A member of the RNA family "TD-2 RNA" from Treponema parvum, 94 nucleotides long. A reference for the family is Weinberg et al. (2007), "Identification of 22 candidate structured RNAs in bacteria using the CMfinder comparative genomics pipeline", Nucleic Acids Res. Lineage of the source: Bacteria > Pseudomonadati > Spirochaetota > Treponematales > Treponema. Clan: TD (Treponema denticola) motifs. The family's RNA type in Rfam is small RNA.
RNA sequence: CGUGCGGCAAACAUCGCGGAAAUAAAAGUACGCGAGUUUUCGACAGAAAACUCGAUGCUCAAGAAUGUACAAGGACGUACAUUCUUGAGAGGGA
Dot-bracket structure: ((((..........))))..............(((((((((....)))))))))...(((((((((((((......))))))))))))).....